Rfam assigns this 102-nucleotide RNA sequence from Niallia taxi to the family "TPP riboswitch aptamer (THI element)". On this family, see Rodionov et al., J Biol Chem 2002: "Comparative genomics of thiamin biosynthesis in procaryotes. New genes and regulatory mechanisms". The match comes from Rfam's covariance-model search (82 bits). Taxonomically the source falls in Niallia (Bacteria, Bacillati, Bacilli, Caryophanales). The base pairs follow the family's consensus structure, which is taken from published work.
RNA sequence: AAAAUCCACUAGGGGAGCCAAUUGAGGCUGAGACAAGAAGUUCUUGGACCCUUCGAACCUGAUCUAGUUCGUACUAGCGUAGGAAAGUGGAGUCGGUAUCUA
Numbered sequence: 001a002a003a004a005u006c007c008a009c010u011a012g013g014g015g016a017g018c019c020a021a022u023u024g025a026g027g028c029u030g031a032g033a034c035a036a037g038a039a040g041u042u043c044u045u046g047g048a049c050c051c052u053u054c055g056a057a058c059c060u061g062a063u064c065u066a067g068u069u070c071g072u073a074c075u076a077g078c079g080u081a082g083g084a085a086a087g088u089g090g091a092g093u094c095g096g097u098a099u100c101u102a
Base pairs, nucleotide, nucleotide: 006090007089008088009087010086011052012051013050014049017028018027019026035045036044037043038042058083059082060081061080064077065076066075067074